[Rfam]
A member of the RNA family "U11 spliceosomal RNA" from Gossypium klotzschianum, 127 nucleotides long. Rfam classes the family as a spliceosomal small nuclear RNA. Pairs were carried over by alignment from the consensus structure, which is taken from published work. Rfam 15.1 lists 2,595 matches to the family in 1,202 species.
RNA sequence: UAAAAGGGUCGGUUGGCUAAAUCGGCCACGCCCACCCUCGUCUGGUGGGUGCUGUAUGGCUUUCAAGAAAUAUGGCCGACACAACUUGUGGAAAGCAAUAGUGUUGGCUAGCUCGGCCGACACUCCA
Numbered sequence: 001u002a003a004a005a006g007g008g009u010c011g012g013u014u015g016g017c018u019a020a021a022u023c024g025g026c027c028a029c030g031c032c033c034a035c036c037c038u039c040g041u042c043u044g045g046u047g048g049g050u051g052c053u054g055u056a057u058g059g060c061u062u063u064c065a066a067g068a069a070a071u072a073u074g075g076c077c078g079a080c081a082c083a084a085c086u087u088g089u090g091g092a093a094a095g096c097a098a099u100a101g102u103g104u105u106g107g108c109u110a111g112c113u114c115g116g117c118c119g120a121c122a123c124u125c126c127a
Base pairs, nucleotide, nucleotide: 008080009079010078011077012076014028015027016026017025018024029051030050031049032048033047034046035045036044052075053074054073055072056071057070100124101123102122103121104120105119106118107117